[Rfam]
RNA sequence: GGAGCAGCAACGAUGUUACGCAGCAGGGCAGUCGCCCUAAAACAAAGUUAUGUGUUUUUCUUGCAAG
Numbered sequence: 001g002g003a004g005c006a007g008c009a010a011c012g013a014u015g016u017u018a019c020g021c022a023g024c025a026g027g028g029c030a031g032u033c034g035c036c037c038u039a040a041a042a043c044a045a046a047g048u049u050a051u052g053u054g055u056u057u058u059u060c061u062u063g064c065a066a067g
Stems, first nucleotide, its partner, number of pairs: 006017001008015002020056001023053002026037004038050003061067002
A member of the RNA family "putative aminoglycoside riboswitch / attI site" from Aeromonas simiae, 67 nucleotides long. By type it is a cis-regulatory element. About the family: Conserved RNA structure found upstream of the bacterial aminoglycosides antibiotic-resistant genes: aminoglycoside acetyl transferase (AAC) and aminoglycoside adenyl transferase (AAD). It has putative short open reading frame (ORF) that encode leader peptide upstream of the resistance gene. 75 nucleotide long sequence from the first ribosome binding site (SD1) up to the coding sequence was shown to have the regulatory role, and it was considered the minima functional RNA. Aminoglycosides bind to specific regions of AAC/AAD 5' leader and induce change in the RNA structure. The drug binding induces expression of the resistance protein. The leader RNA is widely distributed among antibiotic-resistant bacterial pathogens. The literature on the family includes a 2013 paper in Cell by Jia et al., "Riboswitch control of aminoglycoside antibiotic resistance". Lineage of the source: Bacteria > Pseudomonadati > Gammaproteobacteria > Aeromonadaceae > Aeromonas. Rfam 15.1 lists 39 matches to the family in 38 species. It scores 69 bits against the family's covariance model.